Notes:
A member of the RNA family "Bacterial small signal recognition particle RNA" from Pseudomonas oryzihabitans, 97 nucleotides long. Its Rfam clan is "SRP clan". The organism belongs to Pseudomonas, within Bacteria. The family's consensus secondary structure is taken from published work. The signal recognition particle (SRP) is a universally conserved ribonucleoprotein involved in the co-translational targeting of proteins to membranes. The family's RNA type in Rfam is non-coding RNA gene.
RNA sequence: UGUCGGUCCCCCCGCAACGAUCAACCGUGAACCCGGUCAGGCCCGGAAGGGAGCAGCCGCAGCGGUGAUGUCGUGUGCCGGGGUGUGGCUGGCGGGG
Numbered sequence: 001u002g003u004c005g006g007u008c009c010c011c012c013c014g015c016a017a018c019g020a021u022c023a024a025c026c027g028u029g030a031a032c033c034c035g036g037u038c039a040g041g042c043c044c045g046g047a048a049g050g051g052a053g054c055a056g057c058c059g060c061a062g063c064g065g066u067g068a069u070g071u072c073g074u075g076u077g078c079c080g081g082g083g084u085g086u087g088g089c090u091g092g093c094g095g096g097g
Stems, first nucleotide, its partner, number of pairs: 004091005010083005015075001017074005024066005034059004042051003